[Rfam]
RNA sequence: AUUUAGACAUGCGACUGACGGAAACAGAGUGAUCUGUGUAGGGGUACCUACAGGGAGCAUGUGAAUAAAGAAGAGCCGACCGUCUGGGCAAACACA
Numbered sequence: 001a002u003u004u005a006g007a008c009a010u011g012c013g014a015c016u017g018a019c020g021g022a023a024a025c026a027g028a029g030u031g032a033u034c035u036g037u038g039u040a041g042g043g044g045u046a047c048c049u050a051c052a053g054g055g056a057g058c059a060u061g062u063g064a065a066u067a068a069a070g071a072a073g074a075g076c077c078g079a080c081c082g083u084c085u086g087g088g089c090a091a092a093c094a095c096a
Stems, first nucleotide, its partner, number of pairs: 003065002007062006015054002017084005039050004075089003
ZMP/ZTP riboswitch aptamer (pfl RNA motif): a 96-nucleotide RNA sequence from Firmicutes bacterium CAG:95. The source organism's lineage runs through Bacteria, Bacillati and Bacillota. A search with the family's covariance model found it, with a score of 50 bits.